[Rfam]
Nucleotides: 152
Stems, first nucleotide, its partner, number of pairs: 002019006028071005033061007042052001044051002085099005101122003108115002127145006
Number, partner (000 for none) and nucleotide at each position: 001000c002019c003018u004017c005016c006015a007014g008000u009000u010000c011000c012000g013000u014007c015006u016005g017004g018003a019002g020000u021000a022000g023000c024000c025000u026000a027000u028071g029070g030069g031068c032067a033061c034060g035059u036058g037057c038056a039055a040000u041000a042052g043000u044051g045050a046000g047000u048000a049000a050045u051044c052042c053000a054000u055039u056038u057037g058036u059035g060034c061033g062000a063000c064000a065000g066000c067032u068031g069030u070029c071028c072000a073000g074000a075000c076000a077000a078000g079000g080000u081000a082000a083000c084000c085099u086098u087097u088096c089095c090000u091000u092000u093000a094000a095089g096088g097087a098086g099085a100000a101122g102121a103120c104000c105000g106000a107000a108115c109114c110000g111000c112000a113000a114109g115108g116000g117000g118000a119000c120103g121102u122101c123000a124000a125000c126000g127145g128144c129143c130142g131141g132140u133000a134000a135000c136000a137000u138000c139000a140132a141131u142130c143129g144128g145127c146000g147000c148000g149000a150000g151000g152000g
A member of the RNA family "Group II catalytic intron D1-D4-7" from Bacteroides reticulotermitis, 152 nucleotides long. Gene Ontology term of the family: Group II intron splicing. About the family: Group II introns are found in rRNA, tRNA and mRNA of organelles in fungi, plants and protists, and also in mRNA in bacteria. The family has 244 seed sequences and 1,296 matches in Rfam 15.1. The base pairs follow the family's consensus structure.